[Rfam]
RNA sequence: GAGCACUUGAUACUAACCGAGCCAUCUGUAUCCCAGGUCUUGCACAGAGGUCUGAGGUAUACUUUGUGAUUGCUGGGUCCAAAAAGUGCAACACUAAAACAAGCCAUGAAGUGUUUAAGCUCAGCGUAUAAAGAAAAACACUGGGUUAUAGCUCAGAGGCACAGAA
Numbered sequence: 001g002a003g004c005a006c007u008u009g010a011u012a013c014u015a016a017c018c019g020a021g022c023c024a025u026c027u028g029u030a031u032c033c034c035a036g037g038u039c040u041u042g043c044a045c046a047g048a049g050g051u052c053u054g055a056g057g058u059a060u061a062c063u064u065u066g067u068g069a070u071u072g073c074u075g076g077g078u079c080c081a082a083a084a085a086g087u088g089c090a091a092c093a094c095u096a097a098a099a100c101a102a103g104c105c106a107u108g109a110a111g112u113g114u115u116u117a118a119g120c121u122c123a124g125c126g127u128a129u130a131a132a133g134a135a136a137a138a139c140a141c142u143g144g145g146u147u148a149u150a151g152c153u154c155a156g157a158g159g160c161a162c163a164g165a166a
Stems, first nucleotide, its partner, number of pairs: 003089006016078003020074003024070003027061004032057002034054001036052006103160003124139001127136001129134001141156006